[Rfam]
RNA sequence: AGCAUCCAUCGCCAAGCCUGCUGUGAAGCGGGUUCGGAAAGUCGCGGGUCUUGCGCAAAUACAGCAAGACGGCCGGAUUGCUCCC
Numbered sequence: 001a002g003c004a005u006c007c008a009u010c011g012c013c014a015a016g017c018c019u020g021c022u023g024u025g026a027a028g029c030g031g032g033u034u035c036g037g038a039a040a041g042u043c044g045c046g047g048g049u050c051u052u053g054c055g056c057a058a059a060u061a062c063a064g065c066a067a068g069a070c071g072g073c074c075g076g077a078u079u080g081c082u083c084c085c
Stems, first nucleotide, its partner, number of pairs: 012037002017032006040079004045075003048070007
Source information
c-di-GMP-I riboswitch aptamer: an 85-nucleotide RNA from Methylomonas sp. LL1. Its family is annotated with cyclic-di-GMP binding in the Gene Ontology.